[Rfam]
RNA sequence: GUAGUUUCUCAGGGCGGGGUGUAAUUCCCCACCGGCGGUAAUGGUGCUGCUUGCGUAUUGAUACGUGGUCUGCUGCCUAGCCCGCGAGCGCUUGAUGGUGGGCUGCAUGCUCCCUCAAGGUCAGCAGAUCUGGUGCGAUCCCAGAGCCGACGGUCAUAGUCCGGAUGAAAGAGAAACGCA
Number, nucleotide and partner (000 for none) at each position: 001g000002u000003a000004g177005u176006u175007u174008c173009u172010c171011a000012g000013g000014g000015c000016g000017g029018g028019g027020u000021g000022u000023a000024a000025u000026u000027c019028c018029c017030c000031a160032c159033c149034g148035g085036c084037g083038g082039u000040a000041a000042u000043g000044g000045u000046g000047c000048u000049g000050c000051u000052u000053g000054c000055g000056u000057a000058u000059u000060g000061a000062u000063a000064c000065g000066u000067g000068g000069u000070c000071u000072g000073c000074u000075g000076c000077c000078u000079a000080g000081c000082c038083c037084g036085c035086g000087a000088g125089c124090g000091c000092u000093u000094g000095a000096u000097g000098g000099u000100g000101g000102g000103c000104u000105g000106c000107a000108u000109g000110c000111u000112c000113c000114c000115u000116c000117a000118a000119g000120g000121u000122c000123a000124g089125c088126a000127g000128a000129u145130c144131u143132g142133g141134u000135g000136c000137g000138a000139u000140c000141c133142c132143a131144g130145a129146g000147c000148c034149g033150a000151c163152g162153g161154u000155c000156a000157u000158a000159g032160u031161c153162c152163g151164g000165a000166u000167g000168a000169a000170a000171g010172a009173g008174a007175a006176a005177c004178g000179c000180a000